[Rfam]
Nucleotides: 110
Base pairs, nucleotide, nucleotide: 003108004107005106006105007104008103013042014041015040016039017038021031022030023029026083027082028081043076044075045074046073048072049071052067053066054065080102085099086098087097088096089095
Number, partner (000 for none) and nucleotide at each position: 001000g002000a003108c004107u005106u006105a007104u008103c009000c010000a011000g012000a013042a014041a015040g016039a017038c018000u019000g020000a021031g022030g023029g024000a025000a026083u027082g028081g029023c030022c031021c032000u033000g034000u035000g036000a037000u038017g039016u040015c041014u042013u043076a044075g045074c046073a047000a048072c049071c050000u051000c052067u053066a054065c055000c056000u057000u058000c059000u060000a061000a062000c063000c064000g065054g066053u067052a068000a069000a070000a071049g072048g073046u074045g075044c076043u077000a078000a079000u080102u081028c082027c083026a084000a085099u086098u087097c088096g089095c090000a091000a092000a093000u094000a095089g096088c097087g098086a099085a100000u101000a102080a103008g104007a105006u106005a107004a108003g109000c110000a